[Rfam]
RNA sequence: AUAAUGAUACUUCCCAGUAGGGGCUAAAAGAGCGGGUGAAAUGCCCAUGA
Dot-bracket structure: ...........((((....)))(((.....)))(((.......))))...
Numbered sequence: 001a002u003a004a005u006g007a008u009a010c011u012u013c014c015c016a017g018u019a020g021g022g023g024c025u026a027a028a029a030g031a032g033c034g035g036g037u038g039a040a041a042u043g044c045c046c047a048u049g050a
Stems, first nucleotide, its partner, number of pairs: 012047001013022003023033003034046003